[Rfam]
RNA: Small nucleolar RNA Z266
Organism: Kingdonia uniflora
RNA sequence: GGGUGUCAAGAAUGAUGAUUUAAUUAGAUGUGUGAAGUGAGGAGAAAUUUUCUCACUCAUGAACUCAAACUAAUUAUUUGGCAAAUUUCUGACUUGACACUA
Numbered sequence: 001g002g003g004u005g006u007c008a009a010g011a012a013u014g015a016u017g018a019u020u021u022a023a024u025u026a027g028a029u030g031u032g033u034g035a036a037g038u039g040a041g042g043a044g045a046a047a048u049u050u051u052c053u054c055a056c057u058c059a060u061g062a063a064c065u066c067a068a069a070c071u072a073a074u075u076a077u078u079u080g081g082c083a084a085a086u087u088u089c090u091g092a093c094u095u096g097a098c099a100c101u102a
Base pairs, nucleotide, nucleotide: 002101003100004099005098006097007096008095009094010093